[Rfam]
RNA: Small nucleolar RNA Z161/Z228
RNA sequence: AAUUCAAAUGAUGAAUAUGGAUUUACAUUUUCUCACGAUGGUCGUCUGAGUUCACUAUGAUGUGUUAACCUGAUAUUUCUGAUGGGU
Numbered sequence: 001a002a003u004u005c006a007a008a009u010g011a012u013g014a015a016u017a018u019g020g021a022u023u024u025a026c027a028u029u030u031u032c033u034c035a036c037g038a039u040g041g042u043c044g045u046c047u048g049a050g051u052u053c054a055c056u057a058u059g060a061u062g063u064g065u066u067a068a069c070c071u072g073a074u075a076u077u078u079c080u081g082a083u084g085g086g087u
Base pairs, nucleotide, nucleotide: 001087003085004084052060053059054058